The record is an 84-nucleotide sequence from Pan troglodytes, which matches "mir-548 microRNA precursor family" in Rfam.
Gene Ontology terms of the family: miRNA-mediated post-transcriptional gene silencing and RISC complex.
The base pairs follow the family's consensus structure, which was predicted with WAR.
The source organism's lineage runs through Eukaryota, Chordata, Boreoeutheria, Homininae and Pan.
RNA sequence: UAUUAGGUUGGUACAAAAGCAAUUGCAGUUUUUGCUAUUAAAAGUAAUACCAAAAACUGCAAUUGCUUUUGCACCAGCCUAAUA
Numbered sequence: 001u002a003u004u005a006g007g008u009u010g011g012u013a014c015a016a017a018a019g020c021a022a023u024u025g026c027a028g029u030u031u032u033u034g035c036u037a038u039u040a041a042a043a044g045u046a047a048u049a050c051c052a053a054a055a056a057c058u059g060c061a062a063u064u065g066c067u068u069u070u071g072c073a074c075c076a077g078c079c080u081a082a083u084a
Stems, first nucleotide, its partner, number of pairs: 001084012014071021036049005